[Rfam]
RNA sequence: UCUCGUUUAAACGAUGUAUUCCCAAAUCCUUCUAAUACAUCCUUGUAACCCUAUAGUUACGCCAGUUUGAUUAAAUUUCAUCAAAAUGAG
Number, nucleotide and partner (000 for none) at each position: 001u000002c000003u000004c000005g000006u000007u000008u000009a000010a000011a000012c000013g000014a000015u000016g000017u000018a000019u000020u000021c000022c000023c000024a000025a000026a000027u000028c000029c000030u000031u000032c000033u000034a000035a000036u000037a000038c069039a068040u000041c000042c065043u064044u061045g060046u059047a058048a057049c056050c000051c000052u000053a000054u000055a000056g049057u048058u047059a046060c045061g044062c000063c000064a043065g042066u000067u000068u039069g038070a000071u000072u000073a000074a000075a000076u000077u000078u000079c000080a000081u000082c000083a000084a000085a000086a000087u000088g000089a000090g000

Shown here is a 90-nucleotide RNA from Enterococcus hermanniensis, a member of the family "BsrC". The match comes from Rfam's covariance-model search (53 bits). About the family: The 301 nucleotide sequence from Kouji Nakamura has been trimmed to a highly conserved ~85 nucleotide long core to form this family. The literature on the family includes a 2008 paper in Gene by Saito et al., "Novel small RNA-encoding genes in the intergenic regions of Bacillus subtilis".